[Rfam]
RNA sequence: UUCUCCCACUUGGAGGCCAUAAGAAGGAGCGUUCACGUCACGGCCCCUGUCAGGUAUCUGUUUACCUGCGAAUCCUUCU
Numbered sequence: 001u002u003c004u005c006c007c008a009c010u011u012g013g014a015g016g017c018c019a020u021a022a023g024a025a026g027g028a029g030c031g032u033u034c035a036c037g038u039c040a041c042g043g044c045c046c047c048u049g050u051c052a053g054g055u056a057u058c059u060g061u062u063u064a065c066c067u068g069c070g071a072a073u074c075c076u077u078c079u
Base pairs, nucleotide, nucleotide: 013047015045016044017043018042022079023078024077025076026075027074028073029041031039051068052067053066054065055064056063
This 79-nucleotide RNA sequence from Laticauda laticaudata belongs to the Rfam family "Mammalian CPEB3 ribozyme". The organism belongs to Laticauda, within Eukaryota.